[Rfam]
RNA sequence: UCCGGAGAGCGACGGCCGGACAACCGGGCCGUCCGCCGAAGGAGCAAGCGCCUGCGGAGCAGUUCCGCCGGCCGCGAAACUCUCAGGCCAGUGACGGA
Numbered sequence: 001u002c003c004g005g006a007g008a009g010c011g012a013c014g015g016c017c018g019g020a021c022a023a024c025c026g027g028g029c030c031g032u033c034c035g036c037c038g039a040a041g042g043a044g045c046a047a048g049c050g051c052c053u054g055c056g057g058a059g060c061a062g063u064u065c066c067g068c069c070g071g072c073c074g075c076g077a078a079a080c081u082c083u084c085a086g087g088c089c090a091g092u093g094a095c096g097g098a
Base pairs, nucleotide, nucleotide: 001098002097003096004095011033012032013031014030015029016028017027035088036087037086038084039083042082043081044080048075049074